Shown here is a 391-nucleotide RNA sequence from Actibacterium pelagium, a member of the family "Bacterial RNase P class A". The match comes from Rfam's covariance-model search (295 bits). By type it is a ribozyme.
RNA sequence: GCGGAUGACCGGAUGGCCGCGGAGGGGAACCUUCGAGGAAAGUCCGGACUCCAUGAAGCAAUGGUGCCGGGUAACGCCCGGCCGGGGAAACCCGAGGGAAAGCGCCACAGAGAACAGACCGCCACCAAACGGGUCGCGCAAGCGAUACCACUUGGGGGUAAGGGUGAAACGGUGGGGUAAGAGCCCACCGGGGGGCUGGUAACAGACCCCGCAUGGCAAGCCCCACCAGGAGCAAUGCCGAAUAGGGGCCUCGUGCGGUACGCCGCAGGGACGCUUCAGCCCAGAGGCCCGGGUUGGCAGCUAGAGCACGUCGGCAACGGCGCGCCCAGAAGAAUGGUCAUCCAAGGGGGCAACCCCUGGACAGAAUCCGGCUUACAGGUCAUCCGCGCUU
Numbered sequence: 001g002c003g004g005a006u007g008a009c010c011g012g013a014u015g016g017c018c019g020c021g022g023a024g025g026g027g028a029a030c031c032u033u034c035g036a037g038g039a040a041a042g043u044c045c046g047g048a049c050u051c052c053a054u055g056a057a058g059c060a061a062u063g064g065u066g067c068c069g070g071g072u073a074a075c076g077c078c079c080g081g082c083c084g085g086g087g088a089a090a091c092c093c094g095a096g097g098g099a100a101a102g103c104g105c106c107a108c109a110g111a112g113a114a115c116a117g118a119c120c121g122c123c124a125c126c127a128a129a130c131g132g133g134u135c136g137c138g139c140a141a142g143c144g145a146u147a148c149c150a151c152u153u154g155g156g157g158g159u160a161a162g163g164g165u166g167a168a169a170c171g172g173u174g175g176g177g178u179a180a181g182a183g184c185c186c187a188c189c190g191g192g193g194g195g196c197u198g199g200u201a202a203c204a205g206a207c208c209c210c211g212c213a214u215g216g217c218a219a220g221c222c223c224c225a226c227c228a229g230g231a232g233c234a235a236u237g238c239c240g241a242a243u244a245g246g247g248g249c250c251u252c253g254u255g256c257g258g259u260a261c262g263c264c265g266c267a268g269g270g271a272c273g274c275u276u277c278a279g280c281c282c283a284g285a286g287g288c289c290c291g292g293g294u295u296g297g298c299a300g301c302u303a304g305a306g307c308a309c310g311u312c313g314g315c316a317a318c319g320g321c322g323c324g325c326c327c328a329g330a331a332g333a334a335u336g337g338u339c340a341u342c343c344a345a346g347g348g349g350g351c352a353a354c355c356c357c358u359g360g361a362c363a364g365a366a367u368c369c370g371g372c373u374u375a376c377a378g379g380u381c382a383u384c385c386g387c388g389c390u391u
Stems, first nucleotide, its partner, number of pairs: 001387010011376001012342007020035006040374003044371005049232004058276001062228005067081005082096001083094004097223002102221002104217003119163002121159003125155004171189006190212001191210004196205003236299004246290006269282002272279001306325002309322005